[Rfam]
Small nucleolar RNA SNORD42: a 68-nucleotide RNA sequence from Dipodomys ordii. It is annotated as a C/D-box small nucleolar RNA. Rfam links the family to the GO terms nucleolus and RNA processing.
Nucleotides: 068
Base pairs, nucleotide, nucleotide: 001068002067003066004065005064
Number, partner (000 for none) and nucleotide at each position: 001068g002067u003066g004065c005064a006000u007000a008000u009000g010000a011000u012000g013000g014000g015000a016000a017000a018000u019000a020000u021000c022000u023000u024000a025000a026000u027000u028000u029000u030000c031000u032000g033000a034000g035000a036000u037000u038000u039000g040000u041000g042000a043000u044000g045000u046000u047000u048000u049000c050000a051000a052000a053000g054000g055000a056000a057000c058000c059000u060000c061000u062000g063000a064005u065004g066003c067002a068001c